[Rfam]
RNA sequence: CACAGGUAUGGUGAUAUGGUACCAGAAACAAUAGCAGGCAAAAUUGUUGGCGGUGUUUGCUCUUUGAGUGGAGUGUUGGUCAUCGCUCUUCCCGUUCCCGUCAUUGUGUCAAAC
Numbered sequence: 001c002a003c004a005g006g007u008a009u010g011g012u013g014a015u016a017u018g019g020u021a022c023c024a025g026a027a028a029c030a031a032u033a034g035c036a037g038g039c040a041a042a043a044u045u046g047u048u049g050g051c052g053g054u055g056u057u058u059g060c061u062c063u064u065u066g067a068g069u070g071g072a073g074u075g076u077u078g079g080u081c082a083u084c085g086c087u088c089u090u091c092c093c094g095u096u097c098c099c100g101u102c103a104u105u106g107u108g109u110c111a112a113a114c
Stems, first nucleotide, its partner, number of pairs: 005110001007108005013102003018097002021095002037077004049063002

Potassium channel RNA editing signal: a 114-nucleotide sequence from Polypedilum vanderplanki.
From the family's description: This family represents a group of sequences related to the human potassium channel Kv1.1 hairpin element which directs the efficient modification of an adenosine to inosine by an adenosine deaminase acting on RNA (ADAR). The ADAR modification causes an isoleucine/valine recoding event which lies in the ion-conducting pore of the potassium channel. It is thought that this editing event targets the process of fast inactivation and allows a more rapid recovery from inactivation at negative potentials.
The family's RNA type in Rfam is cis-regulatory element.
NCBI's taxonomy places the organism under Eukaryota, Dicondylia, Nematocera, Culicomorpha, Polypedilum.
Rfam 15.1 lists 14,095 matches to the family in 1,000 species.